[Rfam]
RNA: pemK RNA
Organism: Lachnospiraceae bacterium MD308
Nucleotides: 068
Stems, first nucleotide, its partner, number of pairs: 012065001013039011040051003052064003
Number, partner (000 for none) and nucleotide at each position: 001000a002000u003000a004000a005000u006000g007000a008000u009000a010000c011000u012065u013039c014038c015037g016036g017035g018034u019033u020032g021031c022030g023029g024000g025000g026000a027000a028000a029023c030022c031021g032020c033019a034018a035017u036016c037015c038014g039013g040051u041050c042049a043000a044000u045000g046000a047000a048000a049042u050041g051040a052064c053063g054062g055000u056000g057000c058000a059000a060000g061000a062054c063053c064052g065012a066000u067000g068000u